[Rfam]
RNA: Metazoan signal recognition particle RNA
RNA sequence: GCUGGGCACCGUGGCUGGUGCCUGUAAUCCAAGCGCCGGGGAGGCUGAAACUGGCGGACGGCUUGAGCCCGGGGGUUCUGGGCUGCGGCGCGCUAUGCCGAGCGGGCGUCCGCGCUAAGCUCGGCAUCGAUAUGGUGUUCCCCGGGGAGCCGGGGGGCUCCAGGUCGCCUAAGGAGGGGUGAACCGGCCCAGGUCGGGAACGGAGCAGGUCAAAGCUCCUGUGCUGAGCGGUAGUGGGAUCGCGCCUGUGAAUAGUCCCCGUGGCUCAGCCUGGGCAAGACAGCGGGACCCAGUUUCCU
Numbered sequence: 001g002c003u004g005g006g007c008a009c010c011g012u013g014g015c016u017g018g019u020g021c022c023u024g025u026a027a028u029c030c031a032a033g034c035g036c037c038g039g040g041g042a043g044g045c046u047g048a049a050a051c052u053g054g055c056g057g058a059c060g061g062c063u064u065g066a067g068c069c070c071g072g073g074g075g076u077u078c079u080g081g082g083c084u085g086c087g088g089c090g091c092g093c094u095a096u097g098c099c100g101a102g103c104g105g106g107c108g109u110c111c112g113c114g115c116u117a118a119g120c121u122c123g124g125c126a127u128c129g130a131u132a133u134g135g136u137g138u139u140c141c142c143c144g145g146g147g148a149g150c151c152g153g154g155g156g157g158c159u160c161c162a163g164g165u166c167g168c169c170u171a172a173g174g175a176g177g178g179g180u181g182a183a184c185c186g187g188c189c190c191a192g193g194u195c196g197g198g199a200a201c202g203g204a205g206c207a208g209g210u211c212a213a214a215g216c217u218c219c220u221g222u223g224c225u226g227a228g229c230g231g232u233a234g235u236g237g238g239a240u241c242g243c244g245c246c247u248g249u250g251a252a253u254a255g256u257c258c259c260c261g262u263g264g265c266u267c268a269g270c271c272u273g274g275g276c277a278a279g280a281c282a283g284c285g286g287g288a289c290c291c292a293g294u295u296u297c298c299u
Base pairs, nucleotide, nucleotide: 001045002044003043004023005022006021007020008019009018010017011016028042029041030040047297048296049295050294051293052292053291054290059286061284062283063282067276068275069274070273071272072271073270078269079268080267081266082265083264084263085262086261087260088259090257092256093255094254095253096252098250102249103248104247105246106245107244108243109242110238111237113236114235115234116233117232119229120228121227122226123225124224125223126222127221128167129166130165131164133162134161135160137158138157139156140155141154142153143152144151145150168174169173175220176219177218178217179216180215186211187210188209189208194203195202196201